Shown here is a 102-nucleotide sequence from Miscanthus lutarioriparius, a member of the family "Small nucleolar RNA snoR97". A search with the family's covariance model found it, with a score of 55 bits. By type it is an H/ACA-box small nucleolar RNA. The source organism's lineage runs through Eukaryota, Streptophytina, Spermatophyta, Mesangiospermae and Miscanthus. Gene Ontology terms of the family: nucleolus and RNA processing.

[Rfam]
RNA sequence: ACUCUCUGAUCUAUGCUGAGGCUGAAAAACUCGGAGUAUAUGUCUUCAUCAUCAACUUCGACUCAUCCCUGUGAGUUGGGAGUUAAAUAACAGACAAAGAUU
Numbered sequence: 001a002c003u004c005u006c007u008g009a010u011c012u013a014u015g016c017u018g019a020g021g022c023u024g025a026a027a028a029a030c031u032c033g034g035a036g037u038a039u040a041u042g043u044c045u046u047c048a049u050c051a052u053c054a055a056c057u058u059c060g061a062c063u064c065a066u067c068c069c070u071g072u073g074a075g076u077u078g079g080g081a082g083u084u085a086a087a088u089a090a091c092a093g094a095c096a097a098a099g100a101u102u
Base pairs, nucleotide, nucleotide: 041096042095043094044093046092054084055083056082057081058080059079061076062075063074064073